Shown here is a 107-nucleotide sequence, a member of the family "DUF3800-III RNA". By type it is a small RNA.
[Rfam]
RNA sequence: AGAGCGGUAUCGUAAAGCCUGGUGACCCCGGUCACUCGUAGAGUGUCCUAGCUGCUGCUGAAAUGCAGUGGGUAAAAUUGAAAUCAAGGCCCAGGGUGAGCCGCUCG
Numbered sequence: 001a002g003a004g005c006g007g008u009a010u011c012g013u014a015a016a017g018c019c020u021g022g023u024g025a026c027c028c029c030g031g032u033c034a035c036u037c038g039u040a041g042a043g044u045g046u047c048c049u050a051g052c053u054g055c056u057g058c059u060g061a062a063a064u065g066c067a068g069u070g071g072g073u074a075a076a077a078u079u080g081a082a083a084u085c086a087a088g089g090c091c092c093a094g095g096g097u098g099a100g101c102c103g104c105u106c107g
Stems, first nucleotide, its partner, number of pairs: 002106006010099003018095005026089002033045005052071007